chrB-a RNA: an 81-nucleotide RNA from Ruegeria marina. Lineage of the source: Bacteria > Pseudomonadota > Rhodobacterales > Roseobacteraceae > Ruegeria. Rfam 15.1 lists 347 matches to the family in 339 species. By type it is a cis-regulatory element. A search with the family's covariance model found it, with a score of 58 bits. The base pairs follow the family's consensus structure, which is taken from published work.
RNA sequence: GCCAUGGGGUCGCCUGCGAACGCCCCGUGAGGCUCCGGCCCAAGUUUCGCAUGUAUCCUUUGACGAGAGGAGCAUGCCAUG
Numbered sequence: 001g002c003c004a005u006g007g008g009g010u011c012g013c014c015u016g017c018g019a020a021c022g023c024c025c026c027g028u029g030a031g032g033c034u035c036c037g038g039c040c041c042a043a044g045u046u047u048c049g050c051a052u053g054u055a056u057c058c059u060u061u062g063a064c065g066a067g068a069g070g071a072g073c074a075u076g077c078c079a080u081g
Base pairs, nucleotide, nucleotide: 005027006026007025008024009023010022049077050076051075052074053073054072